[Rfam]
RNA sequence: UGAUGGCUGUUUCUCUCACUACUUUACCUCUUGGGUAGUGGGAUUUUAGUCCAUCAUAUAGCAAGUUGAUCUGUUUUCACUCGGAGCACCAUGCGGAUGGAUUGUCUGUCCGAUAGUGACUCCUGAUUUUUGCAGAUCGAACAAUU
Numbered sequence: 001u002g003a004u005g006g007c008u009g010u011u012u013c014u015c016u017c018a019c020u021a022c023u024u025u026a027c028c029u030c031u032u033g034g035g036u037a038g039u040g041g042g043a044u045u046u047u048a049g050u051c052c053a054u055c056a057u058a059u060a061g062c063a064a065g066u067u068g069a070u071c072u073g074u075u076u077u078c079a080c081u082c083g084g085a086g087c088a089c090c091a092u093g094c095g096g097a098u099g100g101a102u103u104g105u106c107u108g109u110c111c112g113a114u115a116g117u118g119a120c121u122c123c124u125g126a127u128u129u130u131u132g133c134a135g136a137u138c139g140a141a142c143a144a145u146u
Stems, first nucleotide, its partner, number of pairs: 001056006008049001014043005020037004068138006081125001083123004087118003095111005
Small nucleolar RNA SNORA79: a 146-nucleotide sequence from Tursiops truncatus. Taxonomically the source falls in Tursiops (Eukaryota, Bilateria, Gnathostomata, Sarcopterygii). The literature on the family includes a 2006 paper in RNA by Schattner et al., "A computational screen for mammalian pseudouridylation guide H/ACA RNAs". Rfam links the family to the GO terms RNA processing and nucleolus. Rfam classes the family as an H/ACA-box small nucleolar RNA. From the family's description: ACA65 (SNORA79) is a member of the H/ACA class of snoRNAs that guide the sites of modification of uridines to pseudouridines. This snoRNA was identified by computational screening and its expression in mouse experimentally verified by Northern blot and primer extension analysis.